[Rfam]
RNA: PhotoRC-II RNA
RNA sequence: CCUCCUUUGAAGACUGCUCUCAAACCAAGACCUAUAGGCAGUAUAAUACUUCGUCUUUUAUCCAGUAGUGAGGGAUUACUGGAAAUAAGUUUCGCA
Numbered sequence: 001c002c003u004c005c006u007u008u009g010a011a012g013a014c015u016g017c018u019c020u021c022a023a024a025c026c027a028a029g030a031c032c033u034a035u036a037g038g039c040a041g042u043a044u045a046a047u048a049c050u051u052c053g054u055c056u057u058u059u060a061u062c063c064a065g066u067a068g069u070g071a072g073g074g075a076u077u078a079c080u081g082g083a084a085a086u087a088a089g090u091u092u093c094g095c096a
Stems, first nucleotide, its partner, number of pairs: 013042005019037002027057005062082007